mir-663 microRNA precursor family: a 90-nucleotide RNA sequence from Homo sapiens.
Gene Ontology terms of the family: RISC complex and miRNA-mediated post-transcriptional gene silencing.
The base pairs follow the family's consensus structure, which was predicted with RNAalifold.
RNA sequence: CCGUCCGGCGUCCUAGGCGGGGCGCCACGGGACCUCCCUAGUGUCUGUGGCAGUGGGAUCCCAUGGCCGUGUUUUCCUGGUGGCCCGGAC
Numbered sequence: 001c002c003g004u005c006c007g008g009c010g011u012c013c014u015a016g017g018c019g020g021g022g023c024g025c026c027a028c029g030g031g032a033c034c035u036c037c038c039u040a041g042u043g044u045c046u047g048u049g050g051c052a053g054u055g056g057g058a059u060c061c062c063a064u065g066g067c068c069g070u071g072u073u074u075u076c077c078u079g080g081u082g083g084c085c086c087g088g089a090c
Stems, first nucleotide, its partner, number of pairs: 005088004011083002013080005019073002022070002024067004029062004033053001036050002038047001
Dot-bracket structure: ....((((..(((((((.((.((((((.(((((..(((........).))..).....)))).)))).)).))..))))).)).))))..